[Rfam]
RNA sequence: UGGCGCCCAACGUGUGGGGCUGGACACUGAGGACCGAGUGAGGGAGACGACGUUAUCAAAAGGAACACGUUCAUCCACAUAUUUCCUUGGAUUCGCCGUGGGAGCCUGCCUUGGCAUAAACCGAAAAGUAAGUAAAAACAUCCGAUUAUGGGGCAAGAAUUAAGCCAACAUGAACUUUAUGUUAAACAAUUACAGGAGGCUUUAAAGACACGAGGAGUAAAGGUUAAAACUACAGACUUAUUUCAUUUCUUUGAUUUCAUCAAAGAAACUUGCCCUU
Numbered sequence: 001u002g003g004c005g006c007c008c009a010a011c012g013u014g015u016g017g018g019g020c021u022g023g024a025c026a027c028u029g030a031g032g033a034c035c036g037a038g039u040g041a042g043g044g045a046g047a048c049g050a051c052g053u054u055a056u057c058a059a060a061a062g063g064a065a066c067a068c069g070u071u072c073a074u075c076c077a078c079a080u081a082u083u084u085c086c087u088u089g090g091a092u093u094c095g096c097c098g099u100g101g102g103a104g105c106c107u108g109c110c111u112u113g114g115c116a117u118a119a120a121c122c123g124a125a126a127a128g129u130a131a132g133u134a135a136a137a138a139c140a141u142c143c144g145a146u147u148a149u150g151g152g153g154c155a156a157g158a159a160u161u162a163a164g165c166c167a168a169c170a171u172g173a174a175c176u177u178u179a180u181g182u183u184a185a186a187c188a189a190u191u192a193c194a195g196g197a198g199g200c201u202u203u204a205a206a207g208a209c210a211c212g213a214g215g216a217g218u219a220a221a222g223g224u225u226a227a228a229a230c231u232a233c234a235g236a237c238u239u240a241u242u243u244c245a246u247u248u249c250u251u252u253g254a255u256u257u258c259a260u261c262a263a264a265g266a267a268a269c270u271u272g273c274c275c276u277u
Stems, first nucleotide, its partner, number of pairs: 006032002012027003038048002084130001086128001087125002092120001093118001097113002100110002139153001141152004161204003164200003211253007221239005262277002265274001